[Rfam]
Nucleotides: 103
Base pairs, nucleotide, nucleotide: 001103002102003101004100006094007093008092009091011087012086013085015080018077019075020074021073023071024070025069026068027067028066029065030064033062034061035060036059037058040055041054042053044051
Number, partner (000 for none) and nucleotide at each position: 001103a002102c003101u004100g005000c006094u007093c008092u009091g010000g011087g012086a013085g014000g015080u016000c017000u018077c019075c020074u021073c022000c023071a024070g025069g026068u027067c028066g029065c030064u031000c032000u033062g034061g035060c036059a037058g038000c039000c040055c041054u042053c043000a044051u045000c046000g047000u048000u049000c050000a051044a052000g053042g054041a055040g056000c057000u058037u059036u060035g061034c062033u063000u064030g065029g066028u067027g068026a069025c070024u071023u072000u073021g074020g075019g076000g077018g078000u079000c080015a081000g082000a083000a084000g085013c086012u087011u088000g089000a090000c091009c092008a093007g094006g095000u096000c097000g098000u099000g100004c101003a102002g103001u